Rfam assigns this 123-nucleotide RNA from Odocoileus virginianus to the family "Small nucleolar RNA SNORA26". NCBI's taxonomy places the organism under Eukaryota, Teleostomi, Mammalia, Artiodactyla, Odocoileus virginianus. The match comes from Rfam's covariance-model search (123 bits). Rfam links the family to the GO terms nucleolus and RNA processing.
[Rfam]
RNA sequence: GUGCCCUUUUGAGGCUGACGCAGUGCCUUAAGAGGCUAACACAGGAUGGUAAAGGAAGUCUCCAUAAAACCCAGAGAAGAGAUUUUUAGAACUCCUCUCUGAAUCCUAUCUGGAGUCACAACU
Numbered sequence: 001g002u003g004c005c006c007u008u009u010u011g012a013g014g015c016u017g018a019c020g021c022a023g024u025g026c027c028u029u030a031a032g033a034g035g036c037u038a039a040c041a042c043a044g045g046a047u048g049g050u051a052a053a054g055g056a057a058g059u060c061u062c063c064a065u066a067a068a069a070c071c072c073a074g075a076g077a078a079g080a081g082a083u084u085u086u087u088a089g090a091a092c093u094c095c096u097c098u099c100u101g102a103a104u105c106c107u108a109u110c111u112g113g114a115g116u117c118a119c120a121a122c123u
Stems, first nucleotide, its partner, number of pairs: 002051004007046004014040001016038002019035001021032001058117001060115005072101006079094003083091002
Dot-bracket structure: .((((.((((...(.((.(.(..........)..).)).)..)))).))))......(.(((((.......((((((.(((.((.....))))).)))))).........))))).)......
Clan: SNORA27 clan. By type it is an H/ACA-box small nucleolar RNA. From the family's description: The snoRNA HBI-6 belong to the H/ACA family of snoRNAs, guiding the pseudouridylation of position U4522 if the 28S rRNA. HBI-6 is the human orthologue of mouse MBI-6 snoRNA. A reference for the family is Huttenhofer et al. (2001), "RNomics: an experimental approach that identifies 201 candidates for novel, small, non-messenger RNAs in mouse", EMBO J. The family's consensus secondary structure was predicted with RNAalifold.